[Rfam]
RNA sequence: GGGGAGCAUCUAGAUGCCGAGAUGUUGCCUGAUACAAUCUUCCUAUAGAAAAAAAAAACUGUUAUUUCCUGUUUGCAGUGCUUGAGAAAGGUCUGCAAAUCUCAAAUACACAGUAACAAAU
Numbered sequence: 001g002g003g004g005a006g007c008a009u010c011u012a013g014a015u016g017c018c019g020a021g022a023u024g025u026u027g028c029c030u031g032a033u034a035c036a037a038u039c040u041u042c043c044u045a046u047a048g049a050a051a052a053a054a055a056a057a058a059c060u061g062u063u064a065u066u067u068c069c070u071g072u073u074u075g076c077a078g079u080g081c082u083u084g085a086g087a088a089a090g091g092u093c094u095g096c097a098a099a100u101c102u103c104a105a106a107u108a109c110a111c112a113g114u115a116a117c118a119a120a121u
Stems, first nucleotide, its partner, number of pairs: 001030003005026007058114003071100008081090002
Description: This 121-nucleotide RNA sequence from Cajanus cajan belongs to the Rfam family "Small nucleolar RNA snoR104". The family's consensus secondary structure was predicted with WAR. The organism belongs to Cajanus, within Eukaryota.